[Rfam]
RNA: Mason-Pfizer monkey virus packaging signal
RNA sequence: UGGUGCCCAAUGUGGGGCUGGAUACUGAGGCACCAGUGAGGGAGAUGACAUGAGAAGGAAUGCGUUCGUUCGACAGACCUGUAAGUUCUUCGGAGCCGCCGCAGGAGCCUGCCUCGGCCAAAACCAAAAGUCAGUGAAAACAUCCGAUCAUGGGGCAAGAAUUAAGCCAGCAUGAGCUUUAUGUUAAACAGUUAAAGGAGGCUUUAAAGACAUGGGGAGUAAAGGUUAAAACUAUGGAUUUGUUCCAUUUUUUUUGAUUUUGUAAAGGAAAUUUGUCCCU
Numbered sequence: 001u002g003g004u005g006c007c008c009a010a011u012g013u014g015g016g017g018c019u020g021g022a023u024a025c026u027g028a029g030g031c032a033c034c035a036g037u038g039a040g041g042g043a044g045a046u047g048a049c050a051u052g053a054g055a056a057g058g059a060a061u062g063c064g065u066u067c068g069u070u071c072g073a074c075a076g077a078c079c080u081g082u083a084a085g086u087u088c089u090u091c092g093g094a095g096c097c098g099c100c101g102c103a104g105g106a107g108c109c110u111g112c113c114u115c116g117g118c119c120a121a122a123a124c125c126a127a128a129a130g131u132c133a134g135u136g137a138a139a140a141c142a143u144c145c146g147a148u149c150a151u152g153g154g155g156c157a158a159g160a161a162u163u164a165a166g167c168c169a170g171c172a173u174g175a176g177c178u179u180u181a182u183g184u185u186a187a188a189c190a191g192u193u194a195a196a197g198g199a200g201g202c203u204u205u206a207a208a209g210a211c212a213u214g215g216g217g218a219g220u221a222a223a224g225g226u227u228a229a230a231a232c233u234a235u236g237g238a239u240u241u242g243u244u245c246c247a248u249u250u251u252u253u254u255u256g257a258u259u260u261u262g263u264a265a266a267g268g269a270a271a272u273u274u275g276u277c278c279c280u
Base pairs, nucleotide, nucleotide: 006030007029012025013024014023036046037045085132087130089128090127095124100116101115104112141155143154144153145152146151163206164205165204166202167201168200213256214255215254216253217252218251219250223241224240225239226238227237265280267278268277269276
Dot-bracket structure: .....((....(((........)))...)).....((.......))......................................(.(.((....(....((..(.......)..)).......)..)).).)........(.((((....))))).......((((((...............................))).)))......(((((((...(((((.........)))))........)))))))........(.(((......))).)